[Rfam]
RNA sequence: AUACUCCAGUUUCUCUUCAAAACGUACAAAUCUUUCGCCUUUUACUAAAGAUUUCCGUGGAGAGAAAUAAGAACGAGUGCAAAACAAUUUUUUUAGGCUUCACAUUGGUGAGGCU
Numbered sequence: 001a002u003a004c005u006c007c008a009g010u011u012u013c014u015c016u017u018c019a020a021a022a023c024g025u026a027c028a029a030a031u032c033u034u035u036c037g038c039c040u041u042u043u044a045c046u047a048a049a050g051a052u053u054u055c056c057g058u059g060g061a062g063a064g065a066a067a068u069a070a071g072a073a074c075g076a077g078u079g080c081a082a083a084a085c086a087a088u089u090u091u092u093u094u095a096g097g098c099u100u101c102a103c104a105u106u107g108g109u110g111a112g113g114c115u
Stems, first nucleotide, its partner, number of pairs: 003078004009068011028054008095115001097114006